[Rfam]
RNA sequence: AGCCUAAACCCCGCCUAGUGCGGGGCAUGGCAUCAAAAACCUUAUCAGAAGUAAGCUCUUCGUCAGAGCAUCUGAUAAGGUUGUAUACCGAAAGGUAUGCAGGUAGCGAAAGCUAUC
Numbered sequence: 001a002g003c004c005u006a007a008a009c010c011c012c013g014c015c016u017a018g019u020g021c022g023g024g025g026c027a028u029g030g031c032a033u034c035a036a037a038a039a040c041c042u043u044a045u046c047a048g049a050a051g052u053a054a055g056c057u058c059u060u061c062g063u064c065a066g067a068g069c070a071u072c073u074g075a076u077a078a079g080g081u082u083g084u085a086u087a088c089c090g091a092a093a094g095g096u097a098u099g100c101a102g103g104u105a106g107c108g109a110a111a112g113c114u115a116u117c
Stems, first nucleotide, its partner, number of pairs: 002031003009025006040080010055069005082101008102117006